[Rfam]
RNA sequence: CGGGCGGUAUCAUGACGAACCGCACCGGGAGACAUGCUAACCAAUGACGCGCUUUGCCUGAAGAACCGAAUACCCGUGAUGAUUCGCGGCGGAUUCUGCUCUGAGCCCAAGGGACCGAGACAGAAGG
Numbered sequence: 001c002g003g004g005c006g007g008u009a010u011c012a013u014g015a016c017g018a019a020c021c022g023c024a025c026c027g028g029g030a031g032a033c034a035u036g037c038u039a040a041c042c043a044a045u046g047a048c049g050c051g052c053u054u055u056g057c058c059u060g061a062a063g064a065a066c067c068g069a070a071u072a073c074c075c076g077u078g079a080u081g082a083u084u085c086g087c088g089g090c091g092g093a094u095u096c097u098g099c100u101c102u103g104a105g106c107c108c109a110a111g112g113g114a115c116c117g118a119g120a121c122a123g124a125a126g127g
Base pairs, nucleotide, nucleotide: 001027002026003025004023005022006021007020008019010018011017096123097122098121099119100118101117103115106113107112

The record is a 127-nucleotide sequence from Cohnella rhizosphaerae, which matches "pan motif" in Rfam. The organism belongs to Cohnella, within Bacteria. It scores 38 bits against the family's covariance model.